This 445-nucleotide part of an RNA from Enterospora canceri belongs to the Rfam family "Microsporidia small subunit ribosomal RNA". Its Rfam clan is "SSU clan". The family's consensus secondary structure is taken from published work. The match comes from Rfam's covariance-model search (1211 bits). On this family, see Yusupov et al., Science 2001: "Crystal structure of the ribosome at 5.5 A resolution".

[Rfam]
RNA sequence: CAUUAGGUUGACUCUGCCUAACGUAGAUGCUAGUCUUUAAGAUUAAGCCAUGCAUGCUAAGUGAACCUGUACGGGGGAACGGCGAACGGCUCAGUAAUGUUGCGGUGAUUUGCUCUAUAUGAUAAGAAUAACCACGGUAACCUGUGGCUAAAAGUGUAGAAUAAGGCGCAAUCCUAUCAGUUUGUUGGUAGUGUAAAGGACUACCAAGACUACGACGGGUGACGGGAAAUCAGGGUUUGAUUCCGGAGAGGGAGCCUGAGAGAUGGCUCCCACGUCCAAGGACGGCAGCAGGCGCGAAACUUAUCCACUCUUCUGAGAGGAGAUAGUUAUGAGACGUGAUUUAAGGGUUGAGUGUAAAGAACUCGACGUGAAGCAAUUGGAGGGCAAGUUUUGGUGCCAGCAGCCGCGGUAAUACCAACUCCAAGAGUGUCUAUGGUGGGUGCUG
Numbered sequence: 001c002a003u004u005a006g007g008u009u010g011a012c013u014c015u016g017c018c019u020a021a022c023g024u025a026g027a028u029g030c031u032a033g034u035c036u037u038u039a040a041g042a043u044u045a046a047g048c049c050a051u052g053c054a055u056g057c058u059a060a061g062u063g064a065a066c067c068u069g070u071a072c073g074g075g076g077g078a079a080c081g082g083c084g085a086a087c088g089g090c091u092c093a094g095u096a097a098u099g100u101u102g103c104g105g106u107g108a109u110u111u112g113c114u115c116u117a118u119a120u121g122a123u124a125a126g127a128a129u130a131a132c133c134a135c136g137g138u139a140a141c142c143u144g145u146g147g148c149u150a151a152a153a154g155u156g157u158a159g160a161a162u163a164a165g166g167c168g169c170a171a172u173c174c175u176a177u178c179a180g181u182u183u184g185u186u187g188g189u190a191g192u193g194u195a196a197a198g199g200a201c202u203a204c205c206a207a208g209a210c211u212a213c214g215a216c217g218g219g220u221g222a223c224g225g226g227a228a229a230u231c232a233g234g235g236u237u238u239g240a241u242u243c244c245g246g247a248g249a250g251g252g253a254g255c256c257u258g259a260g261a262g263a264u265g266g267c268u269c270c271c272a273c274g275u276c277c278a279a280g281g282a283c284g285g286c287a288g289c290a291g292g293c294g295c296g297a298a299a300c301u302u303a304u305c306c307a308c309u310c311u312u313c314u315g316a317g318a319g320g321a322g323a324u325a326g327u328u329a330u331g332a333g334a335c336g337u338g339a340u341u342u343a344a345g346g347g348u349u350g351a352g353u354g355u356a357a358a359g360a361a362c363u364c365g366a367c368g369u370g371a372a373g374c375a376a377u378u379g380g381a382g383g384g385c386a387a388g389u390u391u392u393g394g395u396g397c398c399a400g401c402a403g404c405c406g407c408g409g410u411a412a413u414a415c416c417a418a419c420u421c422c423a424a425g426a427g428u429g430u431c432u433a434u435g436g437u438g439g440g441u442g443c444u445g
Stems, first nucleotide, its partner, number of pairs: 004020005022435010033335005039328002041295001047293003051290003056083002061080002066075002090248003099172006106165001109164002114160007132147006173219003180210003185207008223245004227238004250271006273284004301325001303324003309320004347367006377424006391418004400407002